The family of this 88-nucleotide sequence from Kingdonia uniflora is "Small nucleolar RNA U54". Gene Ontology terms of the family: RNA processing and nucleolus. Rfam's curators write: U54 is a C/D box small nucleolar RNA, which acts as a methylation guide for 18S ribosomal RNA in plants.
RNA sequence: GGCUCAAUGAUUACACCGCCUACUUUAGGCAUUAUACGCUAUUCUGAGAAGUACAAUAUACUGUGCUGACAAAAUGUAUAUGAGAGCU
Numbered sequence: 001g002g003c004u005c006a007a008u009g010a011u012u013a014c015a016c017c018g019c020c021u022a023c024u025u026u027a028g029g030c031a032u033u034a035u036a037c038g039c040u041a042u043u044c045u046g047a048g049a050a051g052u053a054c055a056a057u058a059u060a061c062u063g064u065g066c067u068g069a070c071a072a073a074a075u076g077u078a079u080a081u082g083a084g085a086g087c088u
Stems, first nucleotide, its partner, number of pairs: 001088005

A search with the family's covariance model found it, with a score of 52 bits. A reference for the family is Chen et al. (2003), "The high diversity of snoRNAs in plants: identification and comparative study of 120 snoRNA genes from Oryza sativa", Nucleic Acids Res. It is annotated as a C/D-box small nucleolar RNA.